Rfam assigns this 86-nucleotide sequence to the family "Small nucleolar RNA SNORD127". The sequence is in the family's curated seed alignment. Gene Ontology terms of the family: RNA processing and nucleolus.
RNA sequence: UGGCAACUGUGAUGAAAGAUUUGGUCUAUACAGUAAUAUAUUUAUUACUACAUGAGGACAACAGUCCCUCUAAACUGAUGUUGCCA
Dot-bracket structure: (((((((........................................................................)))))))